[Rfam]
RNA sequence: GAGCGGCGGUGGGCGGCUGACCCGAAAGGGAGGAAAGUCCCCCCACCGCUAAAAGGCGGAUCCCUGCAAGGGGAUACCCCGAGAGGGGUGGCAACGGCACAGAAACGACACCGGCUGGAGGAAAUGCGAGGAGGCCGAAAGGCUGAGGUCACUCCAGCCGGAUGAAACGCGCCGACCCCGCCGGUGCAAGGGCGUAAGCCCGCUAAGACUAAUGCCGCCUGAAACAAAAGGGGGCUUACUACCGCCACUC
Numbered sequence: 001g002a003g004c005g006g007c008g009g010u011g012g013g014c015g016g017c018u019g020a021c022c023c024g025a026a027a028g029g030g031a032g033g034a035a036a037g038u039c040c041c042c043c044c045a046c047c048g049c050u051a052a053a054a055g056g057c058g059g060a061u062c063c064c065u066g067c068a069a070g071g072g073g074a075u076a077c078c079c080c081g082a083g084a085g086g087g088g089u090g091g092c093a094a095c096g097g098c099a100c101a102g103a104a105a106c107g108a109c110a111c112c113g114g115c116u117g118g119a120g121g122a123a124a125u126g127c128g129a130g131g132a133g134g135c136c137g138a139a140a141g142g143c144u145g146a147g148g149u150c151a152c153u154c155c156a157g158c159c160g161g162a163u164g165a166a167a168c169g170c171g172c173c174g175a176c177c178c179c180g181c182c183g184g185u186g187c188a189a190g191g192g193c194g195u196a197a198g199c200c201c202g203c204u205a206a207g208a209c210u211a212a213u214g215c216c217g218c219c220u221g222a223a224a225c226a227a228a229a230g231g232g233g234g235c236u237u238a239c240u241a242c243c244g245c246c247a248c249u250c
Stems, first nucleotide, its partner, number of pairs: 001250003005246005011239001012219006021030003035237003039234005044186004055182005060075005076089005090177002095174004111161010134143002190201004

Description: A member of the RNA family "Archaeal RNase P" from Archaeoglobus veneficus, 250 nucleotides long. NCBI's taxonomy places the organism under Archaea, Methanobacteriati, Archaeoglobales, Archaeoglobaceae, Archaeoglobus veneficus. About the family: Ribonuclease P (RNase P) is a ubiquitous endoribonuclease, found in archaea, bacteria and eukarya as well as chloroplasts and mitochondria. Its best characterised activity is the generation of mature 5'-ends of tRNAs by cleaving the 5'-leader elements of precursor-tRNAs. It is annotated as a ribozyme.